[Rfam]
RNA sequence: UUCCACAGCCCCGACCACUCCACACUAAUGGCCGGCAAGCUGUGAAAAAAAGGAGGAAAAAGCAACCCUUAGGCUCAGGGUGCGGCAGUGUGGAGACCUGUCGUAAUGCGGCGCGUCCCGAAGCGGGCGGCCGUGAGGGCGUUUCAUGCGAAGGCAGAACGCCCGGAGCUGCGCAACAUGGCA
Numbered sequence: 001u002u003c004c005a006c007a008g009c010c011c012c013g014a015c016c017a018c019u020c021c022a023c024a025c026u027a028a029u030g031g032c033c034g035g036c037a038a039g040c041u042g043u044g045a046a047a048a049a050a051a052g053g054a055g056g057a058a059a060a061a062g063c064a065a066c067c068c069u070u071a072g073g074c075u076c077a078g079g080g081u082g083c084g085g086c087a088g089u090g091u092g093g094a095g096a097c098c099u100g101u102c103g104u105a106a107u108g109c110g111g112c113g114c115g116u117c118c119c120g121a122a123g124c125g126g127g128c129g130g131c132c133g134u135g136a137g138g139g140c141g142u143u144u145c146a147u148g149c150g151a152a153g154g155c156a157g158a159a160c161g162c163c164c165g166g167a168g169c170u171g172c173g174c175a176a177c178a179u180g181g182c183a
Base pairs, nucleotide, nucleotide: 006042007041008040009039011035012034013033015031016030017029066080067079068078069077072170073169074168075167076166081105082104083103084102085101086100087099088098090097091096108134109133110132111131112130114129115128116127137164138163139162140161141160142159143158144157147156148155149154

This 183-nucleotide RNA sequence belongs to the Rfam family "malK-I RNA". The base pairs follow the family's consensus structure, which is taken from published work. By type it is a cis-regulatory element.